[Rfam]
RNA sequence: UUAUGAAGAUGAUGAAAGAAAUUGACGGGUGAUGAUCAACAUUUUUUUCAUAUGAUCAAAAAAAUACAUUUUCGCUACGUUCUUUCUGAUUCAAUA
Numbered sequence: 001u002u003a004u005g006a007a008g009a010u011g012a013u014g015a016a017a018g019a020a021a022u023u024g025a026c027g028g029g030u031g032a033u034g035a036u037c038a039a040c041a042u043u044u045u046u047u048u049c050a051u052a053u054g055a056u057c058a059a060a061a062a063a064a065u066a067c068a069u070u071u072u073c074g075c076u077a078c079g080u081u082c083u084u085u086c087u088g089a090u091u092c093a094a095u096a
Base pairs, nucleotide, nucleotide: 004093005092006091007090
A member of the RNA family "Small nucleolar RNA R32/R81/Z41" from Hibiscus syriacus, 96 nucleotides long. Its family is annotated with nucleolus and RNA processing in the Gene Ontology. NCBI's taxonomy places the organism under Eukaryota, Viridiplantae, Magnoliopsida, Gunneridae, Hibiscus. The family has 6 seed sequences and 238 matches in Rfam 15.1. The match comes from Rfam's covariance-model search (68 bits).